[Rfam]
RNA sequence: UUAGCUUAAAUUAAUGCAGGAUCUACACUUUGGAAAUGGAAUCCACAUAAAGUGGUGGGACAUACAUUGAUUUCACUCAA
Number, nucleotide and partner (000 for none) at each position: 001u080002u079003a000004g077005c000006u075007u000008a073009a072010a071011u070012u069013a068014a067015u066016g065017c000018a063019g000020g000021a000022u000023c058024u057025a056026c054027a053028c052029u051030u050031u049032g048033g000034a000035a000036a000037u000038g000039g000040a000041a000042u000043c000044c000045a000046c000047a000048u032049a031050a030051a029052g028053u027054g026055g000056u025057g024058g023059g000060a000061c000062a000063u018064a000065c016066a015067u014068u013069g012070a011071u010072u009073u008074c000075a006076c000077u004078c000079a002080a001
RNA: MIR5269 microRNA precursor family